[Rfam]
RNA: U7 small nuclear RNA
RNA sequence: AAAUGUUAAAAUUCUUUUAGAAUUUAUCUAGCAGGAUUUACCGUUUUUGCUGGAAUGUCCCCC
Numbered sequence: 001a002a003a004u005g006u007u008a009a010a011a012u013u014c015u016u017u018u019a020g021a022a023u024u025u026a027u028c029u030a031g032c033a034g035g036a037u038u039u040a041c042c043g044u045u046u047u048u049g050c051u052g053g054a055a056u057g058u059c060c061c062c063c
Base pairs, nucleotide, nucleotide: 034060035059036058038055039054041052043050044049